[Rfam]
RNA sequence: UUUCAAAUUUAUGAAAAUAAAGGAGCAACACCGAAUCUCUUGAUAUAACAAGAAAUUUCGUAUUGCUCCUUUAUU
Numbered sequence: 001u002u003u004c005a006a007a008u009u010u011a012u013g014a015a016a017a018u019a020a021a022g023g024a025g026c027a028a029c030a031c032c033g034a035a036u037c038u039c040u041u042g043a044u045a046u047a048a049c050a051a052g053a054a055a056u057u058u059c060g061u062a063u064u065g066c067u068c069c070u071u072u073a074u075u
Base pairs, nucleotide, nucleotide: 019072020071021070022069023068024067025066026065027064028063030061031060033058034057035056038053039052040051041050
Shown here is a 75-nucleotide RNA sequence from Sanguisorba filiformis, a member of the family "Plastid-psbA-1 3UTR RNA".
The family's consensus secondary structure was predicted with LocARNA.
By type it is a cis-regulatory element.
A reference for the family is Richter et al. (2023), "Retrograde signaling in plants: A critical review focusing on the GUN pathway and beyond", Plant Commun.
It is one of the family's seed sequences.